[Rfam]
RNA sequence: CUGAUUGCAGCGGCAGCAUCAUCAAGAUUCUCAUAUAUACAUCAAAAUGAUCUUAUUAUGUAUGGAUGCAUUUACACAUGAAUAUAUGUGCAUUGACUUGAUGAUUUGUGAAUCUUGAUGAUGCUCCAACAGCAAACAA
Numbered sequence: 001c002u003g004a005u006u007g008c009a010g011c012g013g014c015a016g017c018a019u020c021a022u023c024a025a026g027a028u029u030c031u032c033a034u035a036u037a038u039a040c041a042u043c044a045a046a047a048u049g050a051u052c053u054u055a056u057u058a059u060g061u062a063u064g065g066a067u068g069c070a071u072u073u074a075c076a077c078a079u080g081a082a083u084a085u086a087u088g089u090g091c092a093u094u095g096a097c098u099u100g101a102u103g104a105u106u107u108g109u110g111a112a113u114c115u116u117g118a119u120g121a122u123g124c125u126c127c128a129a130c131a132g133c134a135a136a137c138a139a
Stems, first nucleotide, its partner, number of pairs: 010130001013127001015125016032108002
This 139-nucleotide sequence from Arabis alpina belongs to the Rfam family "mir-172 microRNA precursor family". A search with the family's covariance model found it, with a score of 70 bits. About the family: mir-172 has been experimentally verified in Arabidopsis thaliana. This family is thought to target mRNAs coding for APETALA2-like transcription factors. The mature sequence is excised from the 3' arm of the hairpin. Gene Ontology terms of the family: RISC complex and miRNA-mediated post-transcriptional gene silencing. NCBI's taxonomy places the organism under Eukaryota, Viridiplantae, Euphyllophyta, Mesangiospermae, Arabis.